The record is a 167-nucleotide RNA from a Nocardioidaceae bacterium, which matches "Actinobacteria sRNA Ms_IGR-5" in Rfam. The match comes from Rfam's covariance-model search (99 bits). The literature on the family includes a 2013 paper in RNA by Li et al., "Identification of small RNAs in Mycobacterium smegmatis using heterologous Hfq". The source organism's lineage runs through Bacteria, Bacillati, Actinomycetota, Propionibacteriales and Nocardioidaceae.
[Rfam]
Nucleotides: 167
Base pairs, nucleotide, nucleotide: 014058015057016056017055018054019053061101062100063099064098065097067094068093069092072089073088074087120161121160122159123158124157125156126155127154128153129152130151131150132149133148134147135146
Number, partner (000 for none) and nucleotide at each position: 001000a002000c003000a004000c005000g006000g007000g008000a009000a010000a011000g012000g013000a014058g015057g016056u017055g018054g019053u020000c021000g022000g023000a024000a025000a026000g027000u028000g029000a030000a031000g032000u033000c034000u035000u036000u037000c038000a039000a040000g041000a042000c043000a044000c045000g046000u047000g048000a049000g050000g051000u052000g053019g054018c055017u056016g057015c058014u059000u060000c061101c062100u063099a064098g065097c066000a067094g068093c069092g070000a071000c072089c073088u074087g075000c076000c077000g078000g079000c080000a081000c082000c083000g084000c085000c086000g087074c088073a089072g090000g091000a092069c093068g094067c095000g096000a097065g098064c099063u100062g101061g102000c103000a104000a105000u106000c107000c108000a109000c110000a111000g112000c113000a114000g115000u116000u117000a118000c119000c120161c121160g122159g123158u124157c125156c126155g127154c128153a129152g130151g131150c132149g133148c134147c135146c136000c137000g138000a139000u140000a141000u142000g143000u144000g145000a146135g147134g148133g149132c150131g151130c152129c153128u154127g155126c156125g157124g158123a159122c160121c161120g162000c163000u164000u165000u166000g167000u